[Rfam]
RNA sequence: GAUGGAGAACUCCAAAGGGAUCGCAUUGAUCUCUCCCUCUCUAUCUUGAUGGUGCUGUGAGAUCAUGCGAUUCCUUUGGAAUUUUCCGC
Dot-bracket structure: ..((((.((.(((((((((((.((((.(((((...(....................)..))))))))).))))))))))).)).)))).